RNA sequence: AUGCCCUUUUAACAGGUAGUCCAGAGAGGCUAACAAAGGGUCUUCCUUCCUCAUGCUUAUUUGAGGAAGAGGAAAGACUCUUUGUGUCCAAAACACAAAGAGUUUUUUUAU
Numbered sequence: 001a002u003g004c005c006c007u008u009u010u011a012a013c014a015g016g017u018a019g020u021c022c023a024g025a026g027a028g029g030c031u032a033a034c035a036a037a038g039g040g041u042c043u044u045c046c047u048u049c050c051u052c053a054u055g056c057u058u059a060u061u062u063g064a065g066g067a068a069g070a071g072g073a074a075a076g077a078c079u080c081u082u083u084g085u086g087u088c089c090a091a092a093a094c095a096c097a098a099a100g101a102g103u104u105u106u107u108u109u110a111u
Stems, first nucleotide, its partner, number of pairs: 003041007017032005043072002046069008055060001074106014

PyrR binding site: a 111-nucleotide sequence from Priestia taiwanensis.
Lineage of the source: Bacteria > Bacillati > Bacilli > Caryophanales > Priestia.
It scores 70 bits against the family's covariance model.
It is annotated as a cis-regulatory element.